[Rfam]
RNA sequence: AUACGUGAAGGGUGGAGAUGUACCGCUGUUGAACUGUGUAGCCGGUAAUGCCUGGCUUAGACGCUUAUUCGUCCGCUUUUGACAGCUUAUUCCUCCUCCUGACUGUUUGACGUUGCUGCUGUUACGACAGCAAGCAGGAGACGUAGUCGCGGCUCGGCAUACAACCGAGUACUGCUGGACACGAAGGCGGAUGGCUCCGCCUUUGAUACGACCCCAAGCACCGACCCUCGGCGAGUCGUGUGUGCCGCACGCCGUUUCCGGUAGCCCGGAAACCGA
Number, nucleotide and partner (000 for none) at each position: 001a000002u000003a000004c000005g000006u000007g000008a000009a000010g000011g000012g000013u000014g096015g095016a094017g093018a000019u000020g000021u000022a000023c000024c000025g086026c085027u084028g083029u082030u081031g080032a079033a000034c000035u000036g076037u075038g074039u000040a000041g051042c050043c000044g000045g000046u000047a000048a000049u000050g042051c041052c000053u000054g000055g000056c000057u000058u000059a000060g073061a072062c071063g070064c000065u000066u000067a000068u000069u000070c063071g062072u061073c060074c038075g037076c036077u000078u000079u032080u031081g030082a029083c028084a027085g026086c025087u000088u000089a000090u000091u000092c000093c017094u016095c015096c014097u139098c138099c137100u136101g135102a000103c000104u000105g000106u000107u000108u000109g000110a000111c000112g000113u000114u000115g000116c000117u000118g000119c000120u000121g000122u000123u000124a000125c000126g000127a000128c000129a000130g000131c000132a000133a000134g000135c101136a100137g099138g098139a097140g000141a000142c210143g209144u208145a207146g180147u179148c178149g175150c174151g173152g172153c000154u000155c167156g166157g165158c000159a000160u000161a000162c000163a000164a000165c157166c156167g155168a000169g000170u000171a000172c152173u151174g150175c149176u000177g000178g148179a147180c146181a000182c000183g000184a203185a202186g201187g200188c199189g198190g197191a000192u000193g000194g000195c000196u000197c190198c189199g188200c187201c186202u185203u184204u000205g000206a000207u145208a144209c143210g142211a000212c000213c000214c000215c000216a000217a000218g243219c242220a241221c240222c238223g237224a236225c235226c000227c000228u000229c000230g000231g000232c000233g000234a000235g225236u224237c223238g222239u000240g221241u220242g219243u218244g000245c000246c000247g000248c000249a000250c000251g000252c000253c000254g273255u272256u271257u270258c269259c268260g267261g000262u000263a000264g000265c000266c000267c260268g259269g258270a257271a256272a255273c254274c000275g000276a000
Rfam assigns this 276-nucleotide sequence from Pseudomonas sp. HPB0071 to the family "rne-II RNA". The source organism's lineage runs through Bacteria, Gammaproteobacteria, Pseudomonadales, Pseudomonadaceae and Pseudomonas. The family's RNA type in Rfam is cis-regulatory element.